RNA sequence: GGGUGUCGUCACAUAGGGUGUAGCGGCAGGUUGUGAGCGAAGGUCGGGCCGCCUCG
Number, nucleotide and partner (000 for none) at each position: 001g000002g000003g000004u000005g027006u026007c025008g024009u023010c000011a021012c020013a000014u000015a000016g000017g000018g000019u000020g012021u011022a000023g009024c008025g007026g006027c005028a000029g000030g000031u000032u000033g000034u000035g000036a000037g000038c056039g055040a054041a000042g053043g052044u051045c000046g000047g000048g000049c000050c000051g044052c043053c042054u040055c039056g038
RNA: nhaA-I RNA